[Rfam]
RNA sequence: GGAAGUGUAUGUCUUCUGCUGUGUCGGUACUUACUAUACAUUGAUCGCUGCUCAGUGCAGUUGUAUCUGUUUAGUAAGGAUACGUCACGCAUUUCACGGUAUAGUUUAACGAUGUUAAACCGGCUGGCUUGUAGCGUGCGCCGACUCCCGUUCGCCCGGACGGCCGGCCGCGACGGUGAGGCUCGCGCACAUUCCCUGACCGGCCUUUGCAAUACGCUUUGUUAGUCUAGACACCGGGUUUAGAAGUCUUGAACACUUCCACGUGCAGGCACUGACCACGUCAGAUGCCAGAUUUUUG
Numbered sequence: 001g002g003a004a005g006u007g008u009a010u011g012u013c014u015u016c017u018g019c020u021g022u023g024u025c026g027g028u029a030c031u032u033a034c035u036a037u038a039c040a041u042u043g044a045u046c047g048c049u050g051c052u053c054a055g056u057g058c059a060g061u062u063g064u065a066u067c068u069g070u071u072u073a074g075u076a077a078g079g080a081u082a083c084g085u086c087a088c089g090c091a092u093u094u095c096a097c098g099g100u101a102u103a104g105u106u107u108a109a110c111g112a113u114g115u116u117a118a119a120c121c122g123g124c125u126g127g128c129u130u131g132u133a134g135c136g137u138g139c140g141c142c143g144a145c146u147c148c149c150g151u152u153c154g155c156c157c158g159g160a161c162g163g164c165c166g167g168c169c170g171c172g173a174c175g176g177u178g179a180g181g182c183u184c185g186c187g188c189a190c191a192u193u194c195c196c197u198g199a200c201c202g203g204c205c206u207u208u209g210c211a212a213u214a215c216g217c218u219u220u221g222u223u224a225g226u227c228u229a230g231a232c233a234c235c236g237g238g239u240u241u242a243g244a245a246g247u248c249u250u251g252a253a254c255a256c257u258u259c260c261a262c263g264u265g266c267a268g269g270c271a272c273u274g275a276c277c278a279c280g281u282c283a284g285a286u287g288c289c290a291g292a293u294u295u296u297u298g
Stems, first nucleotide, its partner, number of pairs: 001260008021088003025084001034074003038070003043067003046063001047061004268289003272284005
This 298-nucleotide RNA sequence from Heliothis virescens belongs to the Rfam family "Arthropod 7SK RNA". A reference for the family is Gruber et al. (2008), "Arthropod 7SK RNA", Mol Biol Evol. Rfam 15.1 lists 229 matches to the family in 137 species. The match comes from Rfam's covariance-model search (57 bits). It is annotated as a non-coding RNA gene.